[Rfam]
RNA sequence: GCGAGACCUAGAGCAUCGCGCGGAAAAGUGGCCACCGGUUUUCCGCAAAAGCGAUGCGAAAACAAAAGUCUAGAGCAAGCCGUGCGAUUCCUACAUCGCGCGGCUUGCUCUAGGCCUGCGCCGCUCGUCCCGGCGUUGGCCGGGGCGAGCGGUAUUUGGUC
Numbered sequence: 001g002c003g004a005g006a007c008c009u010a011g012a013g014c015a016u017c018g019c020g021c022g023g024a025a026a027a028g029u030g031g032c033c034a035c036c037g038g039u040u041u042u043c044c045g046c047a048a049a050a051g052c053g054a055u056g057c058g059a060a061a062a063c064a065a066a067a068g069u070c071u072a073g074a075g076c077a078a079g080c081c082g083u084g085c086g087a088u089u090c091c092u093a094c095a096u097c098g099c100g101c102g103g104c105u106u107g108c109u110c111u112a113g114g115c116c117u118g119c120g121c122c123g124c125u126c127g128u129c130c131c132g133g134c135g136u137u138g139g140c141c142g143g144g145g146c147g148a149g150c151g152g153u154a155u156u157u158g159g160u161c
Stems, first nucleotide, its partner, number of pairs: 013057007023044001025042005031036001062157001064155001066117001068115016085098003122151004127146008
RNA: Brucella sRNA CI27
Organism: Caulobacter sp.